[Rfam]
RNA: mir-959 microRNA precursor family
Organism: Drosophila melanogaster
RNA sequence: CUUUGUUCUAUAUUCUUAGUACUCGGGUUGAUAAAGACCUUUUCUUCAGGGAGCCUUUGUCAUCGGGGGUAUUAUGAAAUAUAGUUUAAAG
Numbered sequence: 001c002u003u004u005g006u007u008c009u010a011u012a013u014u015c016u017u018a019g020u021a022c023u024c025g026g027g028u029u030g031a032u033a034a035a036g037a038c039c040u041u042u043u044c045u046u047c048a049g050g051g052a053g054c055c056u057u058u059g060u061c062a063u064c065g066g067g068g069g070u071a072u073u074a075u076g077a078a079a080u081a082u083a084g085u086u087u088a089a090a091g
Stems, first nucleotide, its partner, number of pairs: 001091005008084007015076001017074008027064001029062008038053001040051004